The record is a 358-nucleotide part of an RNA from Haloquadratum walsbyi, which matches "Archaeal large subunit ribosomal RNA" in Rfam. Lineage of the source: Archaea > Methanobacteriota > Halobacteria > Halobacteriales > Haloquadratum. Rfam's curators put it in the seed alignment.
[Rfam]
RNA sequence: CGGGACCAACCGGCGUUAGGGAAUUCGGCAAGUUAGUCCCGUACCUUCGGAAGAAGGGAUGCCUGCUCUUGACCGAGCAGGUCGCAGUGACUCGGACGCUCCGACUGUCUAGUAACAACAUAGGUGACCGCAAAUCCGUAAGGACUCGUACGGUCACUGAAUCCUGCCCAGUGCAGGUAUCUGAACACCUCGUACAAGAGGACGAAGGACCUGUUAACGGCGGGGGUAACUAUGACCCUCUUAAGGUAGCGUAGUACCUUGCCGCUUCAGUAGCGGCUUGCAUGAAUGGAUCAACGAGAGCGUCACUGUCCCAACGCUGGACCCGGUGAACUGUACGUUCCAGUGCGGAGUCUGGAGA
Number, nucleotide and partner (000 for none) at each position: 001c325002g324003g323004g322005a000006c000007c000008a000009a000010c320011c319012g318013g317014c316015g315016u314017u313018a000019g311020g310021g309022a000023a000024u000025u000026c000027g000028g000029c000030a000031a000032g000033u000034u000035a000036g060037u059038c058039c057040c056041g000042u000043a000044c000045c050046u000047u000048c000049g000050g045051a000052a000053g000054a000055a000056g040057g039058g038059a037060u036061g082062c081063c080064u079065g078066c077067u076068c075069u000070u000071g000072a000073c000074c000075g068076a067077g066078c065079a064080g063081g062082u061083c087084g000085c000086a000087g083088u000089g000090a000091c000092u000093c000094g000095g304096a303097c302098g301099c300100u299101c298102c296103g295104a000105c000106u120107g119108u118109c000110u000111a000112g000113u000114a000115a000116c000117a000118a108119c107120a106121u000122a000123g158124g157125u156126g155127a154128c153129c152130g151131c148132a000133a000134a000135u144136c143137c142138g000139u000140a000141a000142g137143g136144a135145c000146u000147c000148g131149u000150a000151c130152g129153g128154u127155c126156a125157c124158u123159g000160a000161a291162u290163c289164c288165u000166g221167c220168c219169c000170a000171g218172u217173g214174c213175a212176g211177g210178u000179a000180u209181c208182u207183g000184a000185a000186c000187a000188c201189c200190u199191c198192g000193u000194a000195c000196a000197a000198g191199a190200g189201g188202a000203c000204g000205a000206a000207g182208g181209a180210c177211c176212u175213g174214u173215u000216a000217a172218c171219g168220g167221c166222g240223g239224g238225g237226g236227u235228a000229a000230c000231u000232a000233u000234g000235a227236c226237c225238c224239u223240c222241u245242u000243a000244a000245g241246g000247u000248a000249g000250c000251g000252u000253a000254g000255u000256a000257c000258c000259u000260u000261g277262c276263c275264g274265c273266u272267u000268c000269a000270g000271u000272a266273g265274c264275g263276g262277c261278u000279u000280g000281c000282a000283u000284g000285a000286a000287u000288g164289g163290a162291u161292c000293a000294a000295c103296g102297a000298g101299a100300g099301c098302g097303u096304c095305a000306c000307u000308g000309u021310c020311c019312c000313a017314a016315c015316g014317c013318u012319g011320g010321a000322c004323c003324c002325g001326g000327u000328g000329a000330a000331c000332u000333g000334u000335a000336c000337g000338u000339u356340c355341c354342a353343g352344u000345g000346c000347g000348g000349a000350g000351u000352c343353u342354g341355g340356a339357g000358a000